[Rfam]
RNA sequence: GAAGCAGAGAUUUGUGUGUAUCGGCUUUGUGCUUUCAAAUGCACUUUUCACGAAAGAUAUCUUUGCAAUAUAUAUUUGUUGAAGAUGGGCAGUUGUGAUUCAUCGUCUAUAGAAUAGCUCAACAAUCAUCUUCCCUACAAUU
Numbered sequence: 001g002a003a004g005c006a007g008a009g010a011u012u013u014g015u016g017u018g019u020a021u022c023g024g025c026u027u028u029g030u031g032c033u034u035u036c037a038a039a040u041g042c043a044c045u046u047u048u049c050a051c052g053a054a055a056g057a058u059a060u061c062u063u064u065g066c067a068a069u070a071u072a073u074a075u076u077u078g079u080u081g082a083a084g085a086u087g088g089g090c091a092g093u094u095g096u097g098a099u100u101c102a103u104c105g106u107c108u109a110u111a112g113a114a115u116a117g118c119u120c121a122a123c124a125a126u127c128a129u130c131u132u133c134c135c136u137a138c139a140a141u142u
Stems, first nucleotide, its partner, number of pairs: 004066007016044006078136001081133008092123004
Record summary: small nucleolar RNA snoR135: a 142-nucleotide RNA sequence from Capsella rubella. Gene Ontology terms of the family: RNA processing and nucleolus. The literature on the family includes a 2009 paper in Nucleic Acids Res by Chen and Wu, "Mining small RNA sequencing data: a new approach to identify small nucleolar RNAs in Arabidopsis".